cold-seep-1 RNA: a 153-nucleotide sequence.
[Rfam]
RNA sequence: GGAUUCCCACAAAGGCUGAGCUGAAAAGCUUUCGCCAUUUGAGGGAGGAUUGCCAUCCGGGUACGUCCAAGCCGUCCACUUCUGGUGCCGGACAUCGGCAUGUCAGGGUCGAGCACAUUGCGGUGCCAUCCGAUGUCGAUGUUCGGGAGACGA
Numbered sequence: 001g002g003a004u005u006c007c008c009a010c011a012a013a014g015g016c017u018g019a020g021c022u023g024a025a026a027a028g029c030u031u032u033c034g035c036c037a038u039u040u041g042a043g044g045g046a047g048g049a050u051u052g053c054c055a056u057c058c059g060g061g062u063a064c065g066u067c068c069a070a071g072c073c074g075u076c077c078a079c080u081u082c083u084g085g086u087g088c089c090g091g092a093c094a095u096c097g098g099c100a101u102g103u104c105a106g107g108g109u110c111g112a113g114c115a116c117a118u119u120g121c122g123g124u125g126c127c128a129u130c131c132g133a134u135g136u137c138g139a140u141g142u143u144c145g146g147g148a149g150a151c152g153a
Stems, first nucleotide, its partner, number of pairs: 002151001004149005015035002018033002020029003047068003051063004095139007106131004113126004